[Rfam]
RNA sequence: AAUAUGCGUUUAACGUCCGCUGACACAACGCCGAGCGAACACAAUCUUGUUUAUCAAAACGGAUAAUUCCUAUCAUCUCAUCCUCAGAGAAACGUUCCAUCGCAUCGCUCAGACCCGAUUUGACGCCACGAGGUAAAUCACACUGGGUAAUAUCGCCAUUAACGAUUACCGUUACGUUCUCUCCUAGGCGAGUC
Numbered sequence: 001a002a003u004a005u006g007c008g009u010u011u012a013a014c015g016u017c018c019g020c021u022g023a024c025a026c027a028a029c030g031c032c033g034a035g036c037g038a039a040c041a042c043a044a045u046c047u048u049g050u051u052u053a054u055c056a057a058a059a060c061g062g063a064u065a066a067u068u069c070c071u072a073u074c075a076u077c078u079c080a081u082c083c084u085c086a087g088a089g090a091a092a093c094g095u096u097c098c099a100u101c102g103c104a105u106c107g108c109u110c111a112g113a114c115c116c117g118a119u120u121u122g123a124c125g126c127c128a129c130g131a132g133g134u135a136a137a138u139c140a141c142a143c144u145g146g147g148u149a150a151u152a153u154c155g156c157c158a159u160u161a162a163c164g165a166u167u168a169c170c171g172u173u174a175c176g177u178u179c180u181c182u183c184c185u186a187g188g189c190g191a192g193u194c
Stems, first nucleotide, its partner, number of pairs: 002054003006050003015040002018037002061078004066073002083112002086109002093102002113193002116190002119188004125134003137166003144158003171183001174180001